[Rfam]
RNA sequence: CUAAUGUUUCUUGCUUAAAUGAGUAUUCCAUGUAAAAAUGAUUCACUCACUCGUAUGGGUGGGUUGGGUUUUCUCUUCAUGAGAUGCUCAUUUGAGCAAGCAAUGUUUG
Numbered sequence: 001c002u003a004a005u006g007u008u009u010c011u012u013g014c015u016u017a018a019a020u021g022a023g024u025a026u027u028c029c030a031u032g033u034a035a036a037a038a039u040g041a042u043u044c045a046c047u048c049a050c051u052c053g054u055a056u057g058g059g060u061g062g063g064u065u066g067g068g069u070u071u072u073c074u075c076u077u078c079a080u081g082a083g084a085u086g087c088u089c090a091u092u093u094g095a096g097c098a099a100g101c102a103a104u105g106u107u108u109g
Stems, first nucleotide, its partner, number of pairs: 004106005010100018029081002
A member of the RNA family "MIR828 microRNA precursor family" from Arabidopsis thaliana, 109 nucleotides long. The literature on the family includes a 2006 paper in Genes Dev by Rajagopalan et al., "A diverse and evolutionarily fluid set of microRNAs in Arabidopsis thaliana". Rfam links the family to the GO terms miRNA-mediated post-transcriptional gene silencing and RISC complex. Taxonomically the source falls in Arabidopsis (Eukaryota, Viridiplantae, Streptophytina, Embryophyta).